Streptomyces sRNA 4677: a 256-nucleotide RNA from Streptomyces kasugaensis.
From the family's description: Located in the intergenic region between anti-sigma factor SCO4677 gene and a putative regulatory protein gene SCO4676. scr4677 expression requires the SCO4677 activity and scr4677 sRNA itself seem to affect the levels of the SCO4676-associated transcripts.
For this family Rfam cites "Complex intra-operonic dynamics mediated by a small RNA in Streptomyces coelicolor" (Hindra et al., PLoS One, 2014).
RNA sequence: GGCUUCGGGACGUAAAAAGACCAAAGAACCACAGGUAGAGAACCCCAACCCACCAAACCCCACCAGCCCGCCACAGGCCCGCCGCCCGCACCGUCACCCACUCAGGUGAUCCAUGACCGGAAGGCUGGCCUUCACGGCUUCCGGCGGGGCAGGCUCGGCCCCAACACCCCCUGAAACCCCAGACAUGCGACGGCCCCCGGCCGGGAGCGCAAUCCCGAUCGAGGGCCUGACCAACGAGGAAGACGAGACCUUCCUG
Numbered sequence: 001g002g003c004u005u006c007g008g009g010a011c012g013u014a015a016a017a018a019g020a021c022c023a024a025a026g027a028a029c030c031a032c033a034g035g036u037a038g039a040g041a042a043c044c045c046c047a048a049c050c051c052a053c054c055a056a057a058c059c060c061c062a063c064c065a066g067c068c069c070g071c072c073a074c075a076g077g078c079c080c081g082c083c084g085c086c087c088g089c090a091c092c093g094u095c096a097c098c099c100a101c102u103c104a105g106g107u108g109a110u111c112c113a114u115g116a117c118c119g120g121a122a123g124g125c126u127g128g129c130c131u132u133c134a135c136g137g138c139u140u141c142c143g144g145c146g147g148g149g150c151a152g153g154c155u156c157g158g159c160c161c162c163a164a165c166a167c168c169c170c171c172u173g174a175a176a177c178c179c180c181a182g183a184c185a186u187g188c189g190a191c192g193g194c195c196c197c198c199g200g201c202c203g204g205g206a207g208c209g210c211a212a213u214c215c216c217g218a219u220c221g222a223g224g225g226c227c228u229g230a231c232c233a234a235c236g237a238g239g240a241a242g243a244c245g246a247g248a249c250c251u252u253c254c255u256g
Stems, first nucleotide, its partner, number of pairs: 001232001006081004094109005124165001126163003192227005198221002203216004238254005
The family's RNA type in Rfam is small RNA. The source organism's lineage runs through Bacteria, Actinomycetes, Kitasatosporales, Streptomycetaceae and Streptomyces.